[Rfam]
RNA: Small nucleolar RNA SNORA47
RNA sequence: CGGAGGACUGAGAAGGUGAGGCAGCUCUGCACUGUGCUGCUUUCUGCCGGUUAAGUCCUCCAAGAGUGAAGGCCUGCCAAGCAGAGACGGGCCCUCUGCUGUCCUCAGAGGGCAGCGCCAUGCAGGCCGACAUCUG
Numbered sequence: 001c002g003g004a005g006g007a008c009u010g011a012g013a014a015g016g017u018g019a020g021g022c023a024g025c026u027c028u029g030c031a032c033u034g035u036g037c038u039g040c041u042u043u044c045u046g047c048c049g050g051u052u053a054a055g056u057c058c059u060c061c062a063a064g065a066g067u068g069a070a071g072g073c074c075u076g077c078c079a080a081g082c083a084g085a086g087a088c089g090g091g092c093c094c095u096c097u098g099c100u101g102u103c104c105u106c107a108g109a110g111g112g113c114a115g116c117g118c119c120a121u122g123c124a125g126g127c128c129g130a131c132a133u134c135u136g
Stems, first nucleotide, its partner, number of pairs: 002061005015048004019042007081127002086123001090119001096115005103110001
Dot-bracket structure: .(((((........(((((((((((..........)))))))..))))........)))))...................((...(...(.....(((((..(......))))))...)...)..)).........